[Rfam]
RNA sequence: UGUUUGACGUCCCAAUGUCAUAGUUAGUCCGGCUACCUUCAGUUUUUUUUAUUAAAAAAAAUAUAAAUAAUAUUAAAAAAAACUGAAGGUAGCCGGACUAACUAUGACAUUGGGACGUCAAACA
Numbered sequence: 001u002g003u004u005u006g007a008c009g010u011c012c013c014a015a016u017g018u019c020a021u022a023g024u025u026a027g028u029c030c031g032g033c034u035a036c037c038u039u040c041a042g043u044u045u046u047u048u049u050u051a052u053u054a055a056a057a058a059a060a061a062u063a064u065a066a067a068u069a070a071u072a073u074u075a076a077a078a079a080a081a082a083c084u085g086a087a088g089g090u091a092g093c094c095g096g097a098c099u100a101a102c103u104a105u106g107a108c109a110u111u112g113g114g115a116c117g118u119c120a121a122a123c124a
Base pairs, nucleotide, nucleotide: 001124002123003122004121005120006119007118008117009116010115011114012113013112014111015110016109017108018107019106020105021104022103023102024101025100026099027098029096030095031094032093033092034091035090036089037088038087039086041084042083045080046079047078048077
Dot-bracket structure: (((((((((((((((((((((((((((.(((((((((((.((..((((............................))))..)).))))))))))).)))))))))))))))))))))))))))
MIR7504 microRNA precursor family: a 124-nucleotide sequence from Parnassius apollo. Gene Ontology terms of the family: RISC complex and miRNA-mediated post-transcriptional gene silencing. Rfam 15.1 lists 7,343 matches to the family in 61 species.